RNA sequence: GUAUCAAGUCAGCAGCGGGCAAUUUUUAAAUUGUUUGAGGAAAAUCCACGCUAGCACUACCUGAGAUGGUAGUAGUGUUCAUGCUAAGCCCAAUAAGCUUAGGCUAUUAGACGACUAGUGCCACAGAGACGAGAAUUGUGAAACGGGUAAACUCCAUGAGCUAGAAACUCAAAUUAUGGUAGAGGAAUCUAAAAUAGGAAUUCAACGAAUUUUAGGAAUGUUAUUUUGAUAACAUUAGAUAAAUUGCUGACACCUUGUAAAAGGGACAGAACGUGGUUUAUUGA
Numbered sequence: 001g002u003a004u005c006a007a008g009u010c011a012g013c014a015g016c017g018g019g020c021a022a023u024u025u026u027u028a029a030a031u032u033g034u035u036u037g038a039g040g041a042a043a044a045u046c047c048a049c050g051c052u053a054g055c056a057c058u059a060c061c062u063g064a065g066a067u068g069g070u071a072g073u074a075g076u077g078u079u080c081a082u083g084c085u086a087a088g089c090c091c092a093a094u095a096a097g098c099u100u101a102g103g104c105u106a107u108u109a110g111a112c113g114a115c116u117a118g119u120g121c122c123a124c125a126g127a128g129a130c131g132a133g134a135a136u137u138g139u140g141a142a143a144c145g146g147g148u149a150a151a152c153u154c155c156a157u158g159a160g161c162u163a164g165a166a167a168c169u170c171a172a173a174u175u176a177u178g179g180u181a182g183a184g185g186a187a188u189c190u191a192a193a194a195u196a197g198g199a200a201u202u203c204a205a206c207g208a209a210u211u212u213u214a215g216g217a218a219u220g221u222u223a224u225u226u227u228g229a230u231a232a233c234a235u236u237a238g239a240u241a242a243a244u245u246g247c248u249g250a251c252a253c254c255u256u257g258u259a260a261a262a263g264g265g266a267c268a269g270a271a272c273g274u275g276g277u278u279u280a281u282u283g284a
Stems, first nucleotide, its partner, number of pairs: 004284004008251007016037006042279003046276005051164005056073006079159005084102006103112001104110002113154002118152002120148003168184003188216007217236008253264004

The record is a 284-nucleotide sequence from Mycoplasmopsis gallopavonis, which matches "Bacterial RNase P class B" in Rfam. It is annotated as a ribozyme. NCBI's taxonomy places the organism under Bacteria, Bacillati, Mycoplasmoidales, Metamycoplasmataceae, Mycoplasmopsis.